RNA sequence: CAGAAUAAUGAAAAACAACGUCGUAUAAUGUCGGGAAUAUGGCCCGAAAGUUUCUACCAAGCUACCGGAAAUAGCUUGACUACGAGGUUAUAUAGUAAUAGG
Numbered sequence: 001c002a003g004a005a006u007a008a009u010g011a012a013a014a015a016c017a018a019c020g021u022c023g024u025a026u027a028a029u030g031u032c033g034g035g036a037a038u039a040u041g042g043c044c045c046g047a048a049a050g051u052u053u054c055u056a057c058c059a060a061g062c063u064a065c066c067g068g069a070a071a072u073a074g075c076u077u078g079a080c081u082a083c084g085a086g087g088u089u090a091u092a093u094a095g096u097a098a099u100a101g102g
Stems, first nucleotide, its partner, number of pairs: 018088002021085005029049001031047005058078007
RNA: Purine riboswitch aptamer
Organism: Schinkia azotoformans